[Rfam]
RNA sequence: AGUUGAAUAGGCGAUGACGUUCGCCAUUAAGCGAGUAAAAUCUGAUGACGUCUACUAUUGU
Numbered sequence: 001a002g003u004u005g006a007a008u009a010g011g012c013g014a015u016g017a018c019g020u021u022c023g024c025c026a027u028u029a030a031g032c033g034a035g036u037a038a039a040a041u042c043u044g045a046u047g048a049c050g051u052c053u054a055c056u057a058u059u060g061u
Stems, first nucleotide, its partner, number of pairs: 010025004016052006033042002
RNA: Fluoride riboswitch aptamer (crcB RNA motif)
Organism: Lactobacillus xujianguonis